[Rfam]
RNA: terC RNA
Organism: Skermanella aerolata
RNA sequence: UUGGGGGUCCGGGCCCCUCUGGUGGUCGCUUUCAACCAGCGCCGCGAUGUCGGACCCCUCCA
Numbered sequence: 001u002u003g004g005g006g007g008u009c010c011g012g013g014c015c016c017c018u019c020u021g022g023u024g025g026u027c028g029c030u031u032u033c034a035a036c037c038a039g040c041g042c043c044g045c046g047a048u049g050u051c052g053g054a055c056c057c058c059u060c061c062a
Base pairs, nucleotide, nucleotide: 006056007055008054009053010052011051012050022045023044024043025042026041028040029039030038